Background
A member of the RNA family "Guanidine-II riboswitch aptamer (mini-ykkC)" from Ahrensia marina, 47 nucleotides long. The source organism's lineage runs through Bacteria, Pseudomonadati, Pseudomonadota, Hyphomicrobiales and Ahrensia.
[Rfam]
RNA sequence: AGUACAGGACGACCUGCACUCAAGCGAAUUAUUCGGGGACGACCCCA
Dot-bracket structure: (((.((((....)))).)))..............((((....)))).